[Rfam]
RNA: MIR162_1 microRNA precursor family
Organism: Camellia sinensis
RNA sequence: GUUGAGGUCACUGGACGCAGCGGUUCAUCGAUCUGUUCCCUGAACUGGUUGUGUAUUCAUAAAUAUGCAGAACAGGAAUCGGUCGAUAAACCUCUGCAUCCAGCGCUUACCCC
Numbered sequence: 001g002u003u004g005a006g007g008u009c010a011c012u013g014g015a016c017g018c019a020g021c022g023g024u025u026c027a028u029c030g031a032u033c034u035g036u037u038c039c040c041u042g043a044a045c046u047g048g049u050u051g052u053g054u055a056u057u058c059a060u061a062a063a064u065a066u067g068c069a070g071a072a073c074a075g076g077a078a079u080c081g082g083u084c085g086a087u088a089a090a091c092c093u094c095u096g097c098a099u100c101c102a103g104c105g106c107u108u109a110c111c112c113c
Stems, first nucleotide, its partner, number of pairs: 013101003018096003022092004027087007036078003